[Rfam]
RNA sequence: GGUGAUAAACGCGGCUCGAGAUAAGCGUUGCGGACCCGGGGGCAGUGCCCGGCGCCUCCACCAUCACCCUUCGGGGUGGCAGGGGGGCGAAACAGGCUCGACGCGCGUGGUAAUGGGGCCGUUUUUGCCCGGCAUGGUUCCGCCGUUAUCGGGCCGAUUCUAAGUGCGAACGACAACGACGCACUCGCUGUUGCUGCGUAA
Numbered sequence: 001g002g003u004g005a006u007a008a009a010c011g012c013g014g015c016u017c018g019a020g021a022u023a024a025g026c027g028u029u030g031c032g033g034a035c036c037c038g039g040g041g042g043c044a045g046u047g048c049c050c051g052g053c054g055c056c057u058c059c060a061c062c063a064u065c066a067c068c069c070u071u072c073g074g075g076g077u078g079g080c081a082g083g084g085g086g087g088c089g090a091a092a093c094a095g096g097c098u099c100g101a102c103g104c105g106c107g108u109g110g111u112a113a114u115g116g117g118g119c120c121g122u123u124u125u126u127g128c129c130c131g132g133c134a135u136g137g138u139u140c141c142g143c144c145g146u147u148a149u150c151g152g153g154c155c156g157a158u159u160c161u162a163a164g165u166g167c168g169a170a171c172g173a174c175a176a177c178g179a180c181g182c183a184c185u186c187g188c189u190g191u192u193g194c195u196g197c198g199u200a201a
Stems, first nucleotide, its partner, number of pairs: 001129005014119004026107003030104003036052005053089007130145004

Rfam assigns this 201-nucleotide sequence from Roseicella aerolata to the family "permuted transfer-messenger RNA". NCBI's taxonomy places the organism under Bacteria, Pseudomonadota, Alphaproteobacteria, Acetobacterales, Roseicella. By type it is a non-coding RNA gene. The base pairs follow the family's consensus structure, which is taken from published work.